[Rfam]
RNA: MicL sRNA
RNA sequence: CAUGGCGGGCGCAGGAGUACGCGCCAGCAAUCUGGAACUGUUUUUAAACGCAGGGGUGGAAGAGCUACACAGCUCGGCGGGUAAAUGGAUACCUUCACCCAUGCGUUAUCGCAAUACAGGGUUGUCAAUGUCGACGGAUGCUGAAGCGGAUGAGUACUCGCGCUACGGUGUGGAUGGAGAGUCGGUUGCGGAAAUGAAAUCGCUGAUUGAACGUCAUCACGUGUAGCAACGUACCGAUUUUUACCGCGCAUCAUGUCGCCCAAUAUGAUGCUUGCUUGUACCAGGCCCCUGCAAAUUACACAGGGGCCUUUUUUU
Number, nucleotide and partner (000 for none) at each position: 001c000002a000003u283004g282005g281006c000007g000008g000009g277010c000011g275012c274013a273014g272015g271016a042017g041018u040019a000020c000021g038022c000023g000024c035025c034026a033027g000028c000029a000030a000031u000032c000033u026034g025035g024036a000037a000038c021039u000040g018041u017042u016043u000044u000045u083046a082047a000048a000049c079050g078051c077052a000053g000054g075055g074056g073057u072058g000059g000060a000061a000062g000063a000064g000065c000066u000067a000068c000069a000070c000071a000072g057073c056074u055075c054076g000077g051078c050079g049080g000081g000082u046083a045084a000085a129086u128087g000088g126089a000090u000091a122092c000093c120094u119095u118096c000097a000098c000099c000100c000101a115102u114103g112104c111105g110106u000107u000108a000109u000110c105111g104112c103113a000114a102115u101116a000117c000118a095119g094120g093121g000122u091123u000124g000125u000126c088127a000128a086129u085130g000131u000132c140133g139134a000135c000136g000137g000138a000139u133140g132141c000142u000143g000144a000145a000146g161147c160148g159149g158150a000151u000152g000153a000154g000155u000156a000157c000158u149159c148160g147161c146162g000163c000164u000165a000166c270167g269168g000169u267170g266171u265172g264173g000174a000175u000176g000177g261178a000179g259180a000181g257182u000183c255184g254185g252186u000187u250188g249189c248190g000191g000192a000193a000194a000195u000196g241197a240198a239199a238200u237201c236202g235203c000204u233205g000206a000207u000208u000209g000210a000211a000212c000213g000214u000215c000216a000217u000218c000219a000220c000221g000222u000223g000224u000225a000226g000227c000228a000229a000230c000231g000232u000233a204234c000235c202236g201237a200238u199239u198240u197241u196242u000243a000244c000245c000246g000247c000248g189249c188250a187251u000252c185253a000254u184255g183256u000257c181258g000259c179260c000261c177262a000263a000264u172265a171266u170267g169268a000269u167270g166271c015272u014273u013274g012275c011276u000277u009278g000279u000280a000281c005282c004283a003284g308285g307286c306287c305288c304289c303290u302291g301292c000293a000294a000295a000296u000297u000298a000299c000300a000301c291302a290303g289304g288305g287306g286307c285308c284309u000310u000311u000312u000313u000314u000315u000